[Rfam]
Nucleotides: 087
Base pairs, nucleotide, nucleotide: 012037013036018031019030020029021028022027040081041080042079043078047077048076049073050072051071056067057066058065059064
Number, partner (000 for none) and nucleotide at each position: 001000u002000c003000u004000c005000g006000a007000u008000a009000a010000a011000g012037g013036c014000a015000a016000a017000c018031c019030u020029g021028g022027u023000g024000a025000a026000a027022a028021c029020c030019a031018g032000c033000g034000a035000c036013g037012c038000a039000a040081a041080a042079c043078u044000a045000u046000a047077g048076g049073g050072a051071c052000u053000a054000c055000g056067g057066u058065g059064c060000a061000a062000a063000u064059g065058c066057a067056c068000u069000a070000u071051g072050u073049c074000a075000g076048c077047c078043a079042g080041u081040u082000a083000c084000c085000g086000a087000a
This 87-nucleotide sequence from Bacillus sp. cl95 belongs to the Rfam family "c-di-GMP-I riboswitch aptamer". The match comes from Rfam's covariance-model search (82 bits). NCBI's taxonomy places the organism under Bacteria, Bacillati, Bacillota, Caryophanales, Bacillus.